[Rfam]
RNA sequence: UGGAUUAAUGUUGACAACUGGUGGCAUAAAAGUCAUGGAUGAUGAAUAUGAGAAGAAAAUAAUCUAG
Numbered sequence: 001u002g003g004a005u006u007a008a009u010g011u012u013g014a015c016a017a018c019u020g021g022u023g024g025c026a027u028a029a030a031a032g033u034c035a036u037g038g039a040u041g042a043u044g045a046a047u048a049u050g051a052g053a054a055g056a057a058a059a060u061a062a063u064c065u066a067g
Stems, first nucleotide, its partner, number of pairs: 002065005
Rfam assigns this 67-nucleotide RNA from Piliocolobus tephrosceles to the family "Small nucleolar RNA SNORD113/SNORD114 family". Rfam classes the family as a C/D-box small nucleolar RNA. Its family is annotated with RNA processing and nucleolus in the Gene Ontology. The family is grouped with related families in Rfam's "SNORD74 clan". From the family's description: The imprinted human domain at 14q32 contains two clusters of tandemly repeated small nucleolar RNAs named 14q(I) and 14q(II) snoRNAs.